A member of the RNA family "Mammalian CPEB3 ribozyme" from Crocodylus porosus, 74 nucleotides long. Pairs were carried over by alignment from the consensus structure, which is taken from published work. Taxonomically the source falls in Crocodylus (Eukaryota, Bilateria, Dipnotetrapodomorpha, Tetrapoda). It scores 44 bits against the family's covariance model.
RNA sequence: CAAGGGUUUGAGGCCAUAGCAGAAGCAUUUGCAGUGUAGCUAGGUCAGAUUCUAACAAAUCUGUGAAUUCUGCU
Numbered sequence: 001c002a003a004g005g006g007u008u009u010g011a012g013g014c015c016a017u018a019g020c021a022g023a024a025g026c027a028u029u030u031g032c033a034g035u036g037u038a039g040c041u042a043g044g045u046c047a048g049a050u051u052c053u054a055a056c057a058a059a060u061c062u063g064u065g066a067a068u069u070c071u072g073c074u
Stems, first nucleotide, its partner, number of pairs: 013040002018074007025037003046063006